Background: Small nucleolar RNA SNORA65: a 127-nucleotide sequence from Hymenochirus boettgeri. The base pairs follow the family's consensus structure, which was predicted with RNAalifold. The family has 14 seed sequences and 1,089 matches in Rfam 15.1. On this family, see Huttenhofer et al., EMBO J 2001: "RNomics: an experimental approach that identifies 201 candidates for novel, small, non-messenger RNAs in mouse". About the family: U65 belongs to the H/ACA class of snoRNAs which are thought to guide the sites of modification of uridines to pseudouridines. The family is grouped with related families in Rfam's "SNORA65 clan". By type it is an H/ACA-box small nucleolar RNA. Lineage of the source: Eukaryota > Eumetazoa > Pipoidea > Pipinae > Hymenochirus.
RNA sequence: CCUGCCACUAUACCAGUACUGACAUUACUUGGUAUAAUCCAGUGGUGAGCUAAGACUAAACUCUCCUCUUAGGAAACAGGGUUGUUCUGUGUGUGGUCACCUCUGUGCCGAAAGAUGGAGAACAUUC
Numbered sequence: 001c002c003u004g005c006c007a008c009u010a011u012a013c014c015a016g017u018a019c020u021g022a023c024a025u026u027a028c029u030u031g032g033u034a035u036a037a038u039c040c041a042g043u044g045g046u047g048a049g050c051u052a053a054g055a056c057u058a059a060a061c062u063c064u065c066c067u068c069u070u071a072g073g074a075a076a077c078a079g080g081g082u083u084g085u086u087c088u089g090u091g092u093g094u095g096g097u098c099a100c101c102u103c104u105g106u107g108c109c110g111a112a113a114g115a116u117g118g119a120g121a122a123c124a125u126u127c
Stems, first nucleotide, its partner, number of pairs: 005045005019031001020027002061120003066117001067115004072109002077105005086096002